[Rfam]
Shown here is a 68-nucleotide sequence from Xenopus tropicalis, a member of the family "mir-33 microRNA precursor family".
For this family Rfam cites "MicroRNA transcriptome in the newborn mouse ovaries determined by massive parallel sequencing" (Ahn et al., Mol Hum Reprod, 2010).
The source organism's lineage runs through Eukaryota, Tetrapoda, Batrachia, Pipidae and Silurana.
RNA sequence: CUGUGGUGCAUUGUAGUUGCAUUGCAUGUGAUAUCAGCGGUGUGCAAUGUGCCUGCAGUGCAACACAG
Numbered sequence: 001c002u003g004u005g006g007u008g009c010a011u012u013g014u015a016g017u018u019g020c021a022u023u024g025c026a027u028g029u030g031a032u033a034u035c036a037g038c039g040g041u042g043u044g045c046a047a048u049g050u051g052c053c054u055g056c057a058g059u060g061c062a063a064c065a066c067a068g
Stems, first nucleotide, its partner, number of pairs: 001068004006064001007062010019050001021048007